[Rfam]
The family of this 103-nucleotide RNA from Quercus lobata is "Small nucleolar RNA snoR109".
It is annotated as an H/ACA-box small nucleolar RNA.
Gene Ontology terms of the family: RNA processing and nucleolus.
The family has 6 seed sequences and 680 matches in Rfam 15.1.
The organism belongs to Quercus, within Eukaryota.

RNA sequence: CGGCUGUAGCCAAAUCAGACAUCUGAGAGAAGUUAACUGGCCGGCUGUUGUGAGAUCCCUUUGGUCUAUGUUGACUAAUCUGCUUACUGAACUUCUCAUAUUG
Number, nucleotide and partner (000 for none) at each position: 001c000002g000003g000004c000005u000006g000007u000008a000009g000010c000011c000012a000013a000014a000015u000016c000017a000018g000019a000020c000021a000022u000023c000024u000025g000026a000027g097028a096029g095030a094031a093032g092033u091034u090035a000036a000037c000038u000039g084040g083041c082042c000043g080044g079045c000046u077047g075048u074049u073050g072051u000052g000053a000054g000055a000056u000057c000058c000059c000060u000061u000062u000063g000064g000065u000066c000067u000068a000069u000070g000071u000072u050073g049074a048075c047076u000077a046078a000079u044080c043081u000082g041083c040084u039085u000086a000087c000088u000089g000090a034091a033092c032093u031094u030095c029096u028097c027098a000099u000100a000101u000102u000103g000

It scores 72 bits against the family's covariance model. The literature on the family includes a 2002 paper in Curr Biol by Marker et al., "Experimental RNomics: identification of 140 candidates for small non-messenger RNAs in the plant Arabidopsis thaliana".